[Rfam]
RNA sequence: AAAUCUUAUUAAUAAAAAUUUAUAAUAAUAAUAUAAUGUAUAUGUGCUCUCUUUAAAUUUAACAAAUUGCUGGAAAACCCUAAAGUAGGCUAAUCAGCAGGGAACUAAUAGACGGAUAAAUAUCUUUUAGUGCCUUCAGAGACUAAACGUUAAAAAUUAAUACGUUAUGCUUUACUGCAAAGCAACCCAUUAAUUAAGAUAUAGUCCAACUAAUAUAGAAAUAUAUUA
Numbered sequence: 001a002a003a004u005c006u007u008a009u010u011a012a013u014a015a016a017a018a019u020u021u022a023u024a025a026u027a028a029u030a031a032u033a034u035a036a037u038g039u040a041u042a043u044g045u046g047c048u049c050u051c052u053u054u055a056a057a058u059u060u061a062a063c064a065a066a067u068u069g070c071u072g073g074a075a076a077a078c079c080c081u082a083a084a085g086u087a088g089g090c091u092a093a094u095c096a097g098c099a100g101g102g103a104a105c106u107a108a109u110a111g112a113c114g115g116a117u118a119a120a121u122a123u124c125u126u127u128u129a130g131u132g133c134c135u136u137c138a139g140a141g142a143c144u145a146a147a148c149g150u151u152a153a154a155a156a157u158u159a160a161u162a163c164g165u166u167a168u169g170c171u172u173u174a175c176u177g178c179a180a181a182g183c184a185a186c187c188c189a190u191u192a193a194u195u196a197a198g199a200u201a202u203a204g205u206c207c208a209a210c211u212a213a214u215a216u217a218g219a220a221a222u223a224u225a226u227u228a
Base pairs, nucleotide, nucleotide: 006025007024008023009022011020012019013018030037058154059153060152061151063149068099069098070097071096072095073094079089080088081087082086100135101134105130106129107128108127112126114124139207141206142205143204144203145202157193158192159191160190161189164186165185213226214225215224216223217222
Group I catalytic intron: a 228-nucleotide RNA from Fusarium albosuccineum. About the family: Group I catalytic introns are large self-splicing ribozymes. They catalyse their own excision from mRNA, tRNA and rRNA precursors in a wide range of organisms. Pairs were carried over by alignment from the consensus structure, which is taken from published work.